Rfam assigns this 44-nucleotide RNA from Geovibrio thiophilus to the family "Guanidine-II riboswitch aptamer (mini-ykkC)". A search with the family's covariance model found it, with a score of 34 bits. The family's consensus secondary structure is taken from published work.

[Rfam]
RNA sequence: GUGAGGACGACCUCACCUCUCGGUUACAUCAGGGGACGGCUCCG
Numbered sequence: 001g002u003g004a005g006g007a008c009g010a011c012c013u014c015a016c017c018u019c020u021c022g023g024u025u026a027c028a029u030c031a032g033g034g035g036a037c038g039g040c041u042c043c044g
Stems, first nucleotide, its partner, number of pairs: 001016006032043004